The record is a 79-nucleotide sequence from Juglans regia, which matches "Small nucleolar RNA Z155" in Rfam.
It scores 47 bits against the family's covariance model.
Rfam classes the family as a C/D-box small nucleolar RNA.
Its family is annotated with nucleolus and RNA processing in the Gene Ontology.
[Rfam]
RNA sequence: CAUUGGCGUGAUGAUACACAACUCUGAAAAUACAUCAUGUGGACUAAACCAUAAUCAGACUACAAUUAUCUGAUCAAUG
Numbered sequence: 001c002a003u004u005g006g007c008g009u010g011a012u013g014a015u016a017c018a019c020a021a022c023u024c025u026g027a028a029a030a031u032a033c034a035u036c037a038u039g040u041g042g043a044c045u046a047a048a049c050c051a052u053a054a055u056c057a058g059a060c061u062a063c064a065a066u067u068a069u070c071u072g073a074u075c076a077a078u079g
Base pairs, nucleotide, nucleotide: 001079002078003077004076005075006074
On this family, see Chen et al., Nucleic Acids Res 2003: "The high diversity of snoRNAs in plants: identification and comparative study of 120 snoRNA genes from Oryza sativa".